[Rfam]
RNA sequence: UCCCCAAUGUACUGUAAGUCGCUUUGGAUAAAAGCGUCUGCUAAAUGAAUAAUU
Numbered sequence: 001u002c003c004c005c006a007a008u009g010u011a012c013u014g015u016a017a018g019u020c021g022c023u024u025u026g027g028a029u030a031a032a033a034g035c036g037u038c039u040g041c042u043a044a045a046u047g048a049a050u051a052a053u054u
Base pairs, nucleotide, nucleotide: 013043014041015040016039020036021035022034023033024032025031
UnaL2 LINE 3' element: a 54-nucleotide RNA from Megalops atlanticus. The family's RNA type in Rfam is cis-regulatory element. Pairs were carried over by alignment from the consensus structure, which is taken from published work. Rfam describes the family as follows. The eel long interspersed element (LINE) UnaL2 and its partner short interspersed element (SINE) share a conserved 3' tail containing a stem-loop that is critical for their retrotransposition. Presumably, the first step of retrotransposition is the recognition of their 3' tails by UnaL2-encoded reverse transcriptase. The match comes from Rfam's covariance-model search (64 bits).